The record is a 93-nucleotide sequence, which matches "GA-cis RNA" in Rfam. The family's RNA type in Rfam is small RNA.

[Rfam]
RNA sequence: CUGAGAAGGCCCCUGCGUGAUGCGAAGCAGCACGAUAUAAUAGGGGCCGACGACGUGCCCUCGACGCCGAAGGCGUAGGGGGCGAUACCAUAA
Numbered sequence: 001c002u003g004a005g006a007a008g009g010c011c012c013c014u015g016c017g018u019g020a021u022g023c024g025a026a027g028c029a030g031c032a033c034g035a036u037a038u039a040a041u042a043g044g045g046g047c048c049g050a051c052g053a054c055g056u057g058c059c060c061u062c063g064a065c066g067c068c069g070a071a072g073g074c075g076u077a078g079g080g081g082g083c084g085a086u087a088c089c090a091u092a093a
Stems, first nucleotide, its partner, number of pairs: 008048006017033003021029002057083003061079002065075004